[Rfam]
RNA sequence: AGGGUGUGCUCAGAACAGGAGACCCCUGUUUACAACACACACAACAGAACUUUGGGUUCACUGUGACAAGGGGCACAAAACUCAUGGCCUUCUUAGGAAUAAAUAUCCAGCAUGU
Numbered sequence: 001a002g003g004g005u006g007u008g009c010u011c012a013g014a015a016c017a018g019g020a021g022a023c024c025c026c027u028g029u030u031u032a033c034a035a036c037a038c039a040c041a042c043a044a045c046a047g048a049a050c051u052u053u054g055g056g057u058u059c060a061c062u063g064u065g066a067c068a069a070g071g072g073g074c075a076c077a078a079a080a081c082u083c084a085u086g087g088c089c090u091u092c093u094u095a096g097g098a099a100u101a102a103a104u105a106u107c108c109a110g111c112a113u114g115u
Base pairs, nucleotide, nucleotide: 002042004040005039006038007037008036013031014030015029016028017027018026019025055108056107058105062101063100064099067097070090071089072088074086075085078082